ybhL leader: a 78-nucleotide RNA from Neorhizobium sp. SOG26. Rfam's curators write: This family is a putative regulatory RNA structure that is found upstream of an uncharacterized membrane protein in alpha-proteobacteria. By type it is a cis-regulatory leader. The literature on the family includes a 2005 paper in Genome Biol by Corbino et al., "Evidence for a second class of S-adenosylmethionine riboswitches and other regulatory RNA motifs in alpha-proteobacteria". The pairing is the family consensus, mapped onto this sequence. Its family is annotated with regulation of gene expression in the Gene Ontology.

[Rfam]
RNA sequence: CAGGCUUGCUGGAGCUCCGCAGCGGCGCCUGGAUCUGCGAAACAUCAGACCCGACACCGUAGUAAUUCCGGAGCUUAA
Numbered sequence: 001c002a003g004g005c006u007u008g009c010u011g012g013a014g015c016u017c018c019g020c021a022g023c024g025g026c027g028c029c030u031g032g033a034u035c036u037g038c039g040a041a042a043c044a045u046c047a048g049a050c051c052c053g054a055c056a057c058c059g060u061a062g063u064a065a066u067u068c069c070g071g072a073g074c075u076u077a078a
Stems, first nucleotide, its partner, number of pairs: 012076008023059003030053003